[Rfam]
RNA sequence: UGGCGCCCAAUGUGGGACUCCAGCACGAGGGAUUCAGUGAAGGAUGCCAUUCGAGUAGCCAGCAGAAAGAAAAGCAAAGGAACAUAAAAGAAAAGAAAAGAAAAAAACGAUGUGGGAACCUGCUGAGUCUGCACACCUCAGGUAAGUGAACAGCAAUUAUGGGUCGAGCAAUGAGCCAAGAUAAGAUGUUCCUUGAAGGACUAGGAAAGGCUAUCAAGGCACGAGGAGUAAAGGGGAAAAUUAAGCAUUUAUGUCAGUAUUUUGAUUAUAUUAAGGAAGUUUGCUCUU
Dot-bracket structure: .....(((...(((.........)))..)))....((((........))))................................................((......(..(.(((.......))).)...)......)).......(((.(..((....)).))))......(.(((...............................)))..).......(((((.((..(((.(.........).)))......)).)))))........((((........))))
RNA: Mason-Pfizer monkey virus packaging signal
Organism: Molossus molossus